[Rfam]
RNA: TPP riboswitch aptamer (THI element)
Organism: Leekyejoonella antrihumi
RNA sequence: CCUGUCCUUCGCGGGAGUCCGGUGCACCGGGCUGAGAGGGGGCUGCAGCCCCGACCGCUUCCACUUGAUCCGGAUCAUGCCGGCGCAAGGAGAAGAUGAUGAGUUUGC
Numbered sequence: 001c002c003u004g005u006c007c008u009u010c011g012c013g014g015g016a017g018u019c020c021g022g023u024g025c026a027c028c029g030g031g032c033u034g035a036g037a038g039g040g041g042g043c044u045g046c047a048g049c050c051c052c053g054a055c056c057g058c059u060u061c062c063a064c065u066u067g068a069u070c071c072g073g074a075u076c077a078u079g080c081c082g083g084c085g086c087a088a089g090g091a092g093a094a095g096a097u098g099a100u101g102a103g104u105u106u107g108c
Base pairs, nucleotide, nucleotide: 007095008094009093010092011058012057013056014055017032018031019030020029021028039052040051041050042049043048064089065088066087067086070083071082072081073080